[Rfam]
RNA sequence: UUCUUAUCAAGAGUGGUGGAGGGAUCAGGCCCUGUGAAACCCGGCAACCUGCAAGGAAUUCCUUGCAAAGGUGCUAAUUCCUACAGUCAUGAAUUUGACUGGAAGAUGAGAA
Dot-bracket structure: ((((((((....(.(((...(((...[[[)))......))))((((.((((((..........))))..))))))...(]]].((((((......))))))..)))))))))
Rfam assigns this 112-nucleotide sequence from Planococcus lenghuensis to the family "SAM riboswitch aptamer (S box leader)". A search with the family's covariance model found it, with a score of 95 bits. Pairs were carried over by alignment from the consensus structure, which is taken from published work. The SAM riboswitch is found upstream of a number of genes which code for proteins involved in methionine or cysteine biosynthesis in Gram-positive bacteria.